The family of this 79-nucleotide RNA from Leersia perrieri is "small nucleolar RNA snoR117". It scores 49 bits against the family's covariance model. Pairs were carried over by alignment from the consensus structure, which was predicted with RNAalifold. On this family, see Chen and Wu, Nucleic Acids Res 2009: "Mining small RNA sequencing data: a new approach to identify small nucleolar RNAs in Arabidopsis". Taxonomically the source falls in Leersia (Eukaryota, Viridiplantae, Euphyllophyta, Oryzeae). Rfam 15.1 lists 419 matches to the family in 211 species.
RNA sequence: GGCCUGUGAUUUGAGAACAAUUGUCCGUACCAUCUGAUAUUCUUGAUGUUUUACAAUUUCCAAUUUAUCUAUGAGGCCC
Numbered sequence: 001g002g003c004c005u006g007u008g009a010u011u012u013g014a015g016a017a018c019a020a021u022u023g024u025c026c027g028u029a030c031c032a033u034c035u036g037a038u039a040u041u042c043u044u045g046a047u048g049u050u051u052u053a054c055a056a057u058u059u060c061c062a063a064u065u066u067a068u069c070u071a072u073g074a075g076g077c078c079c
Stems, first nucleotide, its partner, number of pairs: 001078004